[Rfam]
RNA sequence: AUGAUACUGUAUCUCCGAGUCGUUAUUGCCUAAAGACGCGCCGGCGUCCAUGGCAUUUCGACCUGGGCAACCACGGGGUAUAUUGAGAAAUCGAUAUGCCUACCAUGUUUGUAAAGGAGAUUCAGGGAUUUGGGA
Numbered sequence: 001a002u003g004a005u006a007c008u009g010u011a012u013c014u015c016c017g018a019g020u021c022g023u024u025a026u027u028g029c030c031u032a033a034a035g036a037c038g039c040g041c042c043g044g045c046g047u048c049c050a051u052g053g054c055a056u057u058u059c060g061a062c063c064u065g066g067g068c069a070a071c072c073a074c075g076g077g078g079u080a081u082a083u084u085g086a087g088a089a090a091u092c093g094a095u096a097u098g099c100c101u102a103c104c105a106u107g108u109u110u111g112u113a114a115a116g117g118a119g120a121u122u123c124a125g126g127g128a129u130u131u132g133g134g135a
Stems, first nucleotide, its partner, number of pairs: 003129001011121006019062004025056002028054003035048005064073003076101011102112002